[Rfam]
RNA sequence: GGCAGAGGGAGCCCGGUUCCCGCGGUGGACGCGGCCUCGCCGCGUCGUACGGUGUCGGCCUCGCCGGCACCCACGUGAGGAAAGUCCCCCCACCGUUCGGGCAGGCGACCGGGCGCAAGCCCGGAGUGGGAGACCACUGGCUCUGGAACAGAAACGAGACCCCUCCGCGCGACCGAUGAGGUGCGCGAACCGACCCGCGAGGGAAGGGAGUUGACCCACCGAGGGCUCGACCGCGGAGAAGGGAUGGAACGGCGAAUCCUCGCCGGUGCAAGUCCGCGCCACUAUGGUAGCCCGGACGCCCGCCAGACGGCGGGCCUCCGUGGCGUUCGGCGACGCCGUCGGAGUUCUCCGGCGGACCGCCGGACGCCCGGAGACGGUGCGGACGCUCAGCCGAAUGCCGGGCCGAACAGAAGGGGGCUUACUCCCCUCAGCC
Numbered sequence: 001g002g003c004a005g006a007g008g009g010a011g012c013c014c015g016g017u018u019c020c021c022g023c024g025g026u027g028g029a030c031g032c033g034g035c036c037u038c039g040c041c042g043c044g045u046c047g048u049a050c051g052g053u054g055u056c057g058g059c060c061u062c063g064c065c066g067g068c069a070c071c072c073a074c075g076u077g078a079g080g081a082a083a084g085u086c087c088c089c090c091c092a093c094c095g096u097u098c099g100g101g102c103a104g105g106c107g108a109c110c111g112g113g114c115g116c117a118a119g120c121c122c123g124g125a126g127u128g129g130g131a132g133a134c135c136a137c138u139g140g141c142u143c144u145g146g147a148a149c150a151g152a153a154a155c156g157a158g159a160c161c162c163c164u165c166c167g168c169g170c171g172a173c174c175g176a177u178g179a180g181g182u183g184c185g186c187g188a189a190c191c192g193a194c195c196c197g198c199g200a201g202g203g204a205a206g207g208g209a210g211u212u213g214a215c216c217c218a219c220c221g222a223g224g225g226c227u228c229g230a231c232c233g234c235g236g237a238g239a240a241g242g243g244a245u246g247g248a249a250c251g252g253c254g255a256a257u258c259c260u261c262g263c264c265g266g267u268g269c270a271a272g273u274c275c276g277c278g279c280c281a282c283u284a285u286g287g288u289a290g291c292c293c294g295g296a297c298g299c300c301c302g303c304c305a306g307a308c309g310g311c312g313g314g315c316c317u318c319c320g321u322g323g324c325g326u327u328c329g330g331c332g333a334c335g336c337c338g339u340c341g342g343a344g345u346u347c348u349c350c351g352g353c354g355g356a357c358c359g360c361c362g363g364a365c366g367c368c369c370g371g372a373g374a375c376g377g378u379g380c381g382g383a384c385g386c387u388c389a390g391c392c393g394a395a396u397g398c399c400g401g402g403c404c405g406a407a408c409a410g411a412a413g414g415g416g417g418c419u420u421a422c423u424c425c426c427c428u429c430a431g432c433c
Stems, first nucleotide, its partner, number of pairs: 001433003005429005010423002012402006021077004082420003086417005091268004104264005109124005125138005139259002144255001146253001160243003163238007181219002272384009

The record is a 433-nucleotide sequence from a halophilic archaeon, which matches "Archaeal RNase P" in Rfam. For this family Rfam cites "Ribonuclease P: unity and diversity in a tRNA processing ribozyme" (Frank and Pace, Annu Rev Biochem, 1998). Ribonuclease P (RNase P) is a ubiquitous endoribonuclease, found in archaea, bacteria and eukarya as well as chloroplasts and mitochondria. Its best characterised activity is the generation of mature 5'-ends of tRNAs by cleaving the 5'-leader elements of precursor-tRNAs. Cellular RNase Ps are ribonucleoproteins. Pairs were carried over by alignment from the consensus structure, which is taken from published work. The family is grouped with related families in Rfam's "RNaseP clan". The match comes from Rfam's covariance-model search (140 bits). Its family is annotated with multimeric ribonuclease P complex, tRNA processing and ribonuclease P activity in the Gene Ontology. The family's RNA type in Rfam is ribozyme.